[Rfam]
RNA sequence: UCCAACGACCUGUGCCAGGGCUCCCGUCCACCCUACGGGGUGUGCUCGGUCGAGGCCUAGCAGUUCGUCCGAUACAAGGAGCCAUCACUUUCCCCAUGGUGUCAAUUUCCGGUCGACAGGUCUGAGAGCGAGUCGGUAGCGUUUCUGCCUGAGUUCACCUGCGGGUUCGAGCUCGGUGGAGGCGCUGCCAGGACGACUGAUUCCUACUCCCUUAUGCUAGGCCGUCGGCCCUUGAUGCUUGGGAAUAACCCAGUCGCCUACAUGA
Number, nucleotide and partner (000 for none) at each position: 001u000002c000003c000004a000005a000006c000007g122008a121009c120010c119011u118012g117013u116014g061015c060016c000017a058018g057019g056020g000021c054022u053023c052024c049025c048026g047027u000028c044029c042030a041031c039032c000033c038034u000035a000036c000037g000038g033039g031040g000041u030042g029043u000044g028045c000046u000047c026048g025049g024050u000051c000052g023053a022054g021055g000056c019057c018058u017059a000060g015061c014062a000063g000064u000065u000066c000067g000068u000069c000070c115071g114072a113073u112074a000075c000076a000077a000078g103079g102080a000081g100082c099083c098084a000085u000086c000087a000088c000089u000090u000091u000092c000093c000094c000095c000096a000097u000098g083099g082100u081101g000102u079103c078104a000105a000106u000107u000108u000109c000110c000111g000112g073113u072114c071115g070116a013117c012118a011119g010120g009121u008122c007123u000124g000125a000126g000127a000128g000129c000130g000131a000132g000133u000134c187135g186136g185137u000138a000139g000140c000141g000142u000143u000144u000145c000146u178147g177148c176149c175150u000151g174152a173153g172154u171155u170156c169157a000158c165159c164160u000161g000162c000163g000164g159165g158166u000167u000168c000169g156170a155171g154172c153173u152174c151175g149176g148177u147178g146179g000180a000181g000182g000183c000184g000185c136186u135187g134188c000189c000190a000191g000192g258193a000194c256195g255196a254197c253198u252199g251200a000201u000202u000203c000204c000205u000206a000207c000208u244209c243210c242211c241212u000213u000214a000215u000216g238217c237218u000219a000220g230221g229222c228223c227224g000225u000226c000227g223228g222229c221230c220231c000232u000233u000234g000235a000236u000237g217238c216239u000240u000241g211242g210243g209244a208245a000246u000247a000248a000249c000250c000251c199252a198253g197254u196255c195256g194257c000258c192259u000260a000261c000262a000263u000264g000265a000